[Rfam]
The family of this 156-nucleotide sequence from Populus trichocarpa is "MIR2912 microRNA precursor family".
It scores 126 bits against the family's covariance model.
The source organism's lineage runs through Eukaryota, Embryophyta, Euphyllophyta, Salicaceae and Populus.
RNA sequence: UCUGGAACUCGAGAUAUGGGCUGAACACUAAACAGUAUCUGGACUGCAUGAUAGAUUCUGACUUCUCCGUUGUUGCUACCAUUUGAACUCGAAAAUGACACUUUUAAAUCUUGGACUCUUCAUGAAAGUUUUAAGCCUAUAUCUUAGCUUUCCAAA
Numbered sequence: 001u002c003u004g005g006a007a008c009u010c011g012a013g014a015u016a017u018g019g020g021c022u023g024a025a026c027a028c029u030a031a032a033c034a035g036u037a038u039c040u041g042g043a044c045u046g047c048a049u050g051a052u053a054g055a056u057u058c059u060g061a062c063u064u065c066u067c068c069g070u071u072g073u074u075g076c077u078a079c080c081a082u083u084u085g086a087a088c089u090c091g092a093a094a095a096u097g098a099c100a101c102u103u104u105u106a107a108a109u110c111u112u113g114g115a116c117u118c119u120u121c122a123u124g125a126a127a128g129u130u131u132u133a134a135g136c137c138u139a140u141a142u143c144u145u146a147g148c149u150u151u152c153c154a155a156a
Stems, first nucleotide, its partner, number of pairs: 003154005008147002011145010022133004027129003035123002041119003045115001048112001050110003054105002059100002063097001072088003